This 110-nucleotide RNA from Trifolium medium belongs to the Rfam family "Small nucleolar RNA Z152/R70/R12/". NCBI's taxonomy places the organism under Eukaryota, Pentapetalae, fabids, Fabales, Trifolium. The family has 9 seed sequences and 604 matches in Rfam 15.1. The base pairs follow the family's consensus structure, which was predicted with PFOLD.
[Rfam]
RNA sequence: AGUGCUAUGAUGAGAUUAAAACACCAGGAAGUGUUUUUGAGCAGUGGACGAAAUCUGGUGAUUUCGCCGUGAGCUUAAUUUUAAAACGACUUCUCCUUCCACUGAGCACU
Numbered sequence: 001a002g003u004g005c006u007a008u009g010a011u012g013a014g015a016u017u018a019a020a021a022c023a024c025c026a027g028g029a030a031g032u033g034u035u036u037u038u039g040a041g042c043a044g045u046g047g048a049c050g051a052a053a054u055c056u057g058g059u060g061a062u063u064u065c066g067c068c069g070u071g072a073g074c075u076u077a078a079u080u081u082u083a084a085a086a087c088g089a090c091u092u093c094u095c096c097u098u099c100c101a102c103u104g105a106g107c108a109c110u
Stems, first nucleotide, its partner, number of pairs: 001110005